RNA sequence: ACUUACCUGGACGGGGUCGACGGCCGAUCAAGAAGGGUCGUGGCCUAGAUCAAUGGUCACAUUGCACCUGGUGAGCGCGUUGGCCUACCAUCUCCCCAAGUGGGAGAGUGGACGUCGUAAUUUGUGGUAGAGGGGGUACGCGUUCGCGCGGCCCCUAC
Numbered sequence: 001a002c003u004u005a006c007c008u009g010g011a012c013g014g015g016g017u018c019g020a021c022g023g024c025c026g027a028u029c030a031a032g033a034a035g036g037g038u039c040g041u042g043g044c045c046u047a048g049a050u051c052a053a054u055g056g057u058c059a060c061a062u063u064g065c066a067c068c069u070g071g072u073g074a075g076c077g078c079g080u081u082g083g084c085c086u087a088c089c090a091u092c093u094c095c096c097c098a099a100g101u102g103g104g105a106g107a108g109u110g111g112a113c114g115u116c117g118u119a120a121u122u123u124g125u126g127g128u129a130g131a132g133g134g135g136g137u138a139c140g141c142g143u144u145c146g147c148g149c150g151g152c153c154c155c156u157a158c
Base pairs, nucleotide, nucleotide: 010116011115012114013113014046015045016044017043018042019041021040022039023038024037025036047086048085050083052080056076057075059072060071088111089110090109091107093104095103096102132156133155134154135153139150140149141148142147